A member of the RNA family "Acido-Lenti-1 RNA" from a Planctomycetota bacterium, 55 nucleotides long.
The source organism's lineage runs through Bacteria, Pseudomonadati and Planctomycetota.
Rfam 15.1 lists 2,607 matches to the family in 171 species.
The family's consensus secondary structure is taken from published work.
It is annotated as a small RNA.
A search with the family's covariance model found it, with a score of 42 bits.

RNA sequence: CCCAGGGCUUCGGUUCGCAGCGCCCUGGGCUGUAUUGUCGCGCCCCUUUGGGGCU
Numbered sequence: 001c002c003c004a005g006g007g008c009u010u011c012g013g014u015u016c017g018c019a020g021c022g023c024c025c026u027g028g029g030c031u032g033u034a035u036u037g038u039c040g041c042g043c044c045c046c047u048u049u050g051g052g053g054c055u
Stems, first nucleotide, its partner, number of pairs: 001029008042054005